[Rfam]
RNA sequence: AGUGGGAGGCCGGAUCCUGGGCUGUGUUCCCAGCGCCUUGUGCUCCAGGGCCUGAGCUGUUGGAUUCACACUCCUGGUCACGCAGCCCCCU
Numbered sequence: 001a002g003u004g005g006g007a008g009g010c011c012g013g014a015u016c017c018u019g020g021g022c023u024g025u026g027u028u029c030c031c032a033g034c035g036c037c038u039u040g041u042g043c044u045c046c047a048g049g050g051c052c053u054g055a056g057c058u059g060u061u062g063g064a065u066u067c068a069c070a071c072u073c074c075u076g077g078u079c080a081c082g083c084a085g086c087c088c089c090c091u
Stems, first nucleotide, its partner, number of pairs: 001091002004088003009083002012079002016077002019074003023070004028064003031059004036054001040052001042051003
RNA: mir-8799 microRNA precursor family
Organism: Canis lupus